The family of this 99-nucleotide RNA sequence from Treponema vincentii is "TD-2 RNA".
Lineage of the source: Bacteria > Spirochaetota > Spirochaetia > Treponemataceae > Treponema vincentii.
The match comes from Rfam's covariance-model search (74 bits).
The family's RNA type in Rfam is small RNA.
RNA sequence: ACGGACAAGGAUGUCCGUGAUGUGAAUCAGAAGCGAGUUUAGGCUAACACCUAAACUCGAAGCCCAAGAAUGUGCAAGGACGCACAUUCUUGGGCCCAG
Numbered sequence: 001a002c003g004g005a006c007a008a009g010g011a012u013g014u015c016c017g018u019g020a021u022g023u024g025a026a027u028c029a030g031a032a033g034c035g036a037g038u039u040u041a042g043g044c045u046a047a048c049a050c051c052u053a054a055a056c057u058c059g060a061a062g063c064c065c066a067a068g069a070a071u072g073u074g075c076a077a078g079g080a081c082g083c084a085c086a087u088u089c090u091u092g093g094g095c096c097c098a099g
Base pairs, nucleotide, nucleotide: 001018002017003016004015005014006013034059035058036057037056038055039054040053041052042051043050062095063094064093065092066091067090068089069088070087071086072085073084074083075082